A member of the RNA family "MIR2606 microRNA precursor family" from Medicago truncatula, 147 nucleotides long.
Nucleotides: 147
Base pairs, nucleotide, nucleotide: 002146003145004144005143006142007141008140010138011137012136013135015133016132017131019129020128021127022126023125024124025123027121028120029119030118031117032116033115034114035113036112037111038110039109040108041107042106043105045103046102047101048100049099050098
Number, partner (000 for none) and nucleotide at each position: 001000a002146a003145a004144a005143c006142u007141u008140a009000g010138g011137u012136a013135c014000a015133a016132u017131u018000c019129c020128u021127u022126a023125g024124g025123u026000g027121c028120u029119u030118u031117u032116c033115g034114u035113a036112u037111g038110g039109u040108u041107u042106u043105u044000a045103a046102c047101u048100a049099a050098a051000a052000a053000u054000a055000c056000a057000u058000a059000u060000u061000u062000u063000u064000u065000g066000g067000a068000u069000a070000u071000a072000a073000c074000a075000a076000a077000c078000u079000u080000u081000g082000a083000g084000a085000a086000a087000a088000u089000c090000a091000u092000g093000g094000u095000a096000u097000u098050u099049u100048u101047a102046g103045u104000u105043a106042a107041g108040a109039a110038c111037c112036a113035u114034a115033c116032g117031a118030a119029a120028a121027g122000c123025a124024c125023c126022u127021a128020a129019g130000c131017a132016a133015u134000u135013g136012u137011a138010c139000c140008u141007a142006a143005g144004u145003u146002u147000u

NCBI's taxonomy places the organism under Eukaryota, Euphyllophyta, Spermatophyta, Papilionoideae, Medicago.